[Rfam]
RNA sequence: UGGAAGUGAUGAAAUAGAGAUAAUUGGAUGUGCCUUUGAAUGGAGUGUGUAUGCUAACUGGGGUUUAAACCCAGUUAGACUGGGGGUGGAGGGUGGGGAACACGUGUGUGUGGUGCAGGUGUGGGAAAGGCUUUGAAUGGGGGCACUGAUGGUGCAGUGCUGCUUCCGGAGUGCAUCUGAGGCAUGUUGUGAAACUCUGGGGUGCUGCUUACAACACUGCCGAUGAUUAAAGCCCAAAAGAAGCCCACCAGGACAAGCCUGGGCAUCCUUCAUCUCUGACAGGCUCACCAAUGAAAGUGUGACCCUGUGAGCUGAUCCAA
Numbered sequence: 001u002g003g004a005a006g007u008g009a010u011g012a013a014a015u016a017g018a019g020a021u022a023a024u025u026g027g028a029u030g031u032g033c034c035u036u037u038g039a040a041u042g043g044a045g046u047g048u049g050u051a052u053g054c055u056a057a058c059u060g061g062g063g064u065u066u067a068a069a070c071c072c073a074g075u076u077a078g079a080c081u082g083g084g085g086g087u088g089g090a091g092g093g094u095g096g097g098g099a100a101c102a103c104g105u106g107u108g109u110g111u112g113g114u115g116c117a118g119g120u121g122u123g124g125g126a127a128a129g130g131c132u133u134u135g136a137a138u139g140g141g142g143g144c145a146c147u148g149a150u151g152g153u154g155c156a157g158u159g160c161u162g163c164u165u166c167c168g169g170a171g172u173g174c175a176u177c178u179g180a181g182g183c184a185u186g187u188u189g190u191g192a193a194a195c196u197c198u199g200g201g202g203u204g205c206u207g208c209u210u211a212c213a214a215c216a217c218u219g220c221c222g223a224u225g226a227u228u229a230a231a232g233c234c235c236a237a238a239a240g241a242a243g244c245c246c247a248c249c250a251g252g253a254c255a256a257g258c259c260u261g262g263g264c265a266u267c268c269u270u271c272a273u274c275u276c277u278g279a280c281a282g283g284c285u286c287a288c289c290a291a292u293g294a295a296a297g298u299g300u301g302a303c304c305c306u307g308u309g310a311g312c313u314g315a316u317c318c319a320a
Base pairs, nucleotide, nucleotide: 001319002318003317004316185216186215187214188213189212190211191210192209195202196201
Dot-bracket structure: ((((....................................................................................................................................................................................((((((((..((....))......))))))))...................................................................................................)))).

The family of this 320-nucleotide sequence from Ramphastos sulfuratus is "Small Cajal body-specific RNA 7". The pairing is the family consensus, mapped onto this sequence. For this family Rfam cites "Cajal body-specific small nuclear RNAs: a novel class of 2'-O-methylation and pseudouridylation guide RNAs" (Darzacq et al., EMBO J, 2002). A search with the family's covariance model found it, with a score of 154 bits. Lineage of the source: Eukaryota > Opisthokonta > Coelurosauria > Ramphastidae > Ramphastos. Rfam 15.1 lists 570 matches to the family in 531 species. Gene Ontology terms of the family: nucleolus and RNA processing. It is annotated as a small Cajal body RNA.